[Rfam]
RNA sequence: GCAGUAUGUAGUUAAGAACAAACAAUCUGUGAUUUAUUGAAGACUAAUAAGAGACAUAAGCCCUACUUAAUCUGCAGUAAGAUC
Numbered sequence: 001g002c003a004g005u006a007u008g009u010a011g012u013u014a015a016g017a018a019c020a021a022a023c024a025a026u027c028u029g030u031g032a033u034u035u036a037u038u039g040a041a042g043a044c045u046a047a048u049a050a051g052a053g054a055c056a057u058a059a060g061c062c063c064u065a066c067u068u069a070a071u072c073u074g075c076a077g078u079a080a081g082a083u084c
Stems, first nucleotide, its partner, number of pairs: 001075004
A member of the RNA family "Small nucleolar RNA SNORD19" from Merops nubicus, 84 nucleotides long. It scores 35 bits against the family's covariance model. The pairing is the family consensus, mapped onto this sequence. For this family Rfam cites "RNomics: an experimental approach that identifies 201 candidates for novel, small, non-messenger RNAs in mouse" (Huttenhofer et al., EMBO J, 2001).